[Rfam]
RNA sequence: AUGAAUAUUGUGGGAGAGACUAGACCCAUGGUUUAGCACCGAAGGAGCAAGUACCAGCUGGUAUCAAUCUCUCAGGUAAAAGGACUACAAUAGGACG
Numbered sequence: 001a002u003g004a005a006u007a008u009u010g011u012g013g014g015a016g017a018g019a020c021u022a023g024a025c026c027c028a029u030g031g032u033u034u035a036g037c038a039c040c041g042a043a044g045g046a047g048c049a050a051g052u053a054c055c056a057g058c059u060g061g062u063a064u065c066a067a068u069c070u071c072u073c074a075g076g077u078a079a080a081a082g083g084a085c086u087a088c089a090a091u092a093g094g095a096c097g
Base pairs, nucleotide, nucleotide: 006092007091008090009089010088011087012086013085020036021035022034023033038077039076040075041073042072045071046070047069051064052063053062054061

Rfam assigns this 97-nucleotide sequence from Bacillus sp. PK3_68 to the family "Glycine riboswitch aptamer".
Lineage of the source: Bacteria > Bacillati > Bacillota > Bacilli > Bacillus.
The match comes from Rfam's covariance-model search (69 bits).